[Rfam]
RNA: mir-1175 microRNA precursor family
Organism: Anopheles gambiae
RNA sequence: UGGAAUAAGUGGAGUAGUGGUCUCAUCGCUUAGCUUCAGAAAAGUGAGAUUCUACUUCUCCGACUUAAUUCA
Number, nucleotide and partner (000 for none) at each position: 001u000002g000003g000004a000005a000006u000007a066008a065009g064010u062011g061012g060013a059014g058015u000016a057017g056018u054019g000020g000021u000022c000023u049024c048025a000026u047027c046028g045029c044030u043031u042032a000033g000034c000035u000036u000037c000038a000039g000040a000041a000042a031043a030044g029045u028046g027047a026048g024049a023050u000051u000052c000053u000054a018055c000056u017057u016058c014059u013060c012061c011062g010063a000064c009065u008066u007067a000068a000069u000070u000071c000072a000